The record is a 56-nucleotide sequence, which matches "Glutamine riboswitch aptamer (glnA leader)" in Rfam. Gene Ontology term of the family: glutamine binding.
[Rfam]
RNA sequence: AUCGUUCAACUCACUUUUUGUGAGUCGGAAGUAAGCGAAAGCUGAAGGAACGCAUG
Numbered sequence: 001a002u003c004g005u006u007c008a009a010c011u012c013a014c015u016u017u018u019u020g021u022g023a024g025u026c027g028g029a030a031g032u033a034a035g036c037g038a039a040a041g042c043u044g045a046a047g048g049a050a051c052g053c054a055u056g
Base pairs, nucleotide, nucleotide: 003052004051005050006049007048009025010024011023012022013021028053034043035042036041